[Rfam]
RNA sequence: AUUUGUCUUCGGGGCGGGGUGAAAGUCCCCACCGGCGGUAUAGUCCGCGAGCUGCUGCGGCAGCAGGAAUCGGCGCAAUUCCGGUACCGACAGUAUAGUCUGGAUGAGAGAAGGCGUGU
Numbered sequence: 001a002u003u004u005g006u007c008u009u010c011g012g013g014g015c016g017g018g019g020u021g022a023a024a025g026u027c028c029c030c031a032c033c034g035g036c037g038g039u040a041u042a043g044u045c046c047g048c049g050a051g052c053u054g055c056u057g058c059g060g061c062a063g064c065a066g067g068a069a070u071c072g073g074c075g076c077a078a079u080u081c082c083g084g085u086a087c088c089g090a091c092a093g094u095a096u097a098g099u100c101u102g103g104a105u106g107a108g109a110g111a112a113g114g115c116g117u118g119u
Stems, first nucleotide, its partner, number of pairs: 004116007017029003031099002033089002035048004043087002051064003069085005091102003
Rfam assigns this 119-nucleotide sequence from Firmicutes bacterium CAG:176 to the family "FMN riboswitch aptamer (RFN element)". Rfam 15.1 lists 6,230 matches to the family in 5,120 species.